Record summary:
The record is a 190-nucleotide RNA sequence from Fictibacillus macauensis, which matches "Lysine riboswitch aptamer" in Rfam. NCBI's taxonomy places the organism under Bacteria, Bacillota, Bacilli, Caryophanales, Fictibacillus macauensis. About the family: Riboswitches are metabolite binding domains within certain messenger RNAs that serve as precision sensors for their corresponding targets. Allosteric rearrangement of mRNA structure is mediated by ligand binding, and this results in modulation of gene expression.
RNA sequence: AGUGAUGGUAGAGGAGCAAAAACCAAGAGUACUUCAUCUGAAAAGUAGGAGCUUUAAGGAUGAUGAAGAAAAGGGGAUUUUUGCCGAAGUAAUGAGCGCCUCCUAACGCUUCUUGCUGGACCUGCAUUGAAGAAAUGCAGAGCUGUCACGUCAUUCUUGCCCGGGGAAGACGUGGAGAACUAUCUCACAU
Numbered sequence: 001a002g003u004g005a006u007g008g009u010a011g012a013g014g015a016g017c018a019a020a021a022a023c024c025a026a027g028a029g030u031a032c033u034u035c036a037u038c039u040g041a042a043a044a045g046u047a048g049g050a051g052c053u054u055u056a057a058g059g060a061u062g063a064u065g066a067a068g069a070a071a072a073g074g075g076g077a078u079u080u081u082u083g084c085c086g087a088a089g090u091a092a093u094g095a096g097c098g099c100c101u102c103c104u105a106a107c108g109c110u111u112c113u114u115g116c117u118g119g120a121c122c123u124g125c126a127u128u129g130a131a132g133a134a135a136u137g138c139a140g141a142g143c144u145g146u147c148a149c150g151u152c153a154u155u156c157u158u159g160c161c162c163g164g165g166g167a168a169g170a171c172g173u174g175g176a177g178a179a180c181u182a183u184c185u186c187a188c189a190u
Base pairs, nucleotide, nucleotide: 007184008183009182010181011180016084017083018082019081020080021079023076024075032068033067034066035065036064037063038062088117089116090115091114092113094111095110096109097108098107118144119143122140123139124138125137126136127135128134146175147174148173149172150171151170152169